[Rfam]
RNA sequence: UGGAAAAUCAGCUCUUUUAGUAUUUCUCCAUGUGGUUUUCUGAAGGAGAAAGCCUCC
Numbered sequence: 001u002g003g004a005a006a007a008u009c010a011g012c013u014c015u016u017u018u019a020g021u022a023u024u025u026c027u028c029c030a031u032g033u034g035g036u037u038u039u040c041u042g043a044a045g046g047a048g049a050a051a052g053c054c055u056c057c
Stems, first nucleotide, its partner, number of pairs: 034054008

Source information:
The record is a 57-nucleotide RNA from Salvelinus namaycush, which matches "U7 small nuclear RNA" in Rfam. The family's consensus secondary structure was predicted with PFOLD. NCBI's taxonomy places the organism under Eukaryota, Bilateria, Teleostomi, Osteoglossocephalai, Salvelinus. It scores 36 bits against the family's covariance model. A reference for the family is Spycher et al. (1994), "3' end processing of mouse histone pre-mRNA: evidence for additional base-pairing between U7 snRNA and pre-mRNA", Nucleic Acids Res. Animal histone pre-mRNAs are spliced by a different mechanism than nuclear pre-mRNAs and self-splicing introns.